[Rfam]
RNA: mir-16 microRNA precursor family
RNA sequence: UGCCAGCAGCAGCACAGAAGUAAGGAUGGCAUGGUAUGAUAUUUCCAUCCUUACUUAUGUGCUGCUGCCUGCA
Numbered sequence: 001u002g003c004c005a006g007c008a009g010c011a012g013c014a015c016a017g018a019a020g021u022a023a024g025g026a027u028g029g030c031a032u033g034g035u036a037u038g039a040u041a042u043u044u045c046c047a048u049c050c051u052u053a054c055u056u057a058u059g060u061g062c063u064g065c066u067g068c069c070u071g072c073a
Stems, first nucleotide, its partner, number of pairs: 001073003006068010017056001019055008